Small nucleolar RNA SNORD60: an 83-nucleotide RNA sequence from Xenopus tropicalis. The family's consensus secondary structure was predicted with PFOLD. The family's RNA type in Rfam is C/D-box small nucleolar RNA. It scores 42 bits against the family's covariance model.
[Rfam]
RNA sequence: UGCCAAGGAUGUAUCCUGAAUUCUGACACCUCAUAUGAAACUGUAACAACAGCUUCUUGAUUCUGUCCUUUGGGCUGAGGCAA
Numbered sequence: 001u002g003c004c005a006a007g008g009a010u011g012u013a014u015c016c017u018g019a020a021u022u023c024u025g026a027c028a029c030c031u032c033a034u035a036u037g038a039a040a041c042u043g044u045a046a047c048a049a050c051a052g053c054u055u056c057u058u059g060a061u062u063c064u065g066u067c068c069u070u071u072g073g074g075c076u077g078a079g080g081c082a083a
Stems, first nucleotide, its partner, number of pairs: 001082004041052004